[Rfam]
This 100-nucleotide RNA from Cotesia congregata belongs to the Rfam family "Small nucleolar RNA U6-53/MBII-28". Lineage of the source: Eukaryota > Ecdysozoa > Allotriocarida > Microgastrinae > Cotesia. By type it is a C/D-box small nucleolar RNA. The literature on the family includes a 2001 paper in EMBO J by Huttenhofer et al., "RNomics: an experimental approach that identifies 201 candidates for novel, small, non-messenger RNAs in mouse".
RNA sequence: UUCACGUGAUGCCUAGCCAUGCUAAUACUGAGAGAUCUUAUUAAUAUUAUUAAUAAGGAUCUCGCUGAGUUGAAAUCACUUCAAUAAUAAACUGAUUAUC
Number, nucleotide and partner (000 for none) at each position: 001u000002u098003c000004a096005c000006g000007u000008g000009a000010u000011g000012c000013c000014u000015a000016g000017c000018c000019a000020u000021g000022c000023u000024a000025a000026u000027a000028c000029u000030g000031a000032g000033a000034g000035a000036u000037c000038u000039u000040a000041u053042u052043a051044a050045u049046a000047u000048u000049a045050u044051u043052a042053a041054u000055a000056a000057g000058g000059a000060u000061c000062u000063c000064g000065c000066u000067g000068a000069g000070u000071u000072g000073a000074a000075a000076u000077c000078a000079c000080u000081u000082c000083a000084a000085u000086a000087a000088u000089a000090a000091a000092c000093u000094g000095a000096u004097u000098a002099u000100c000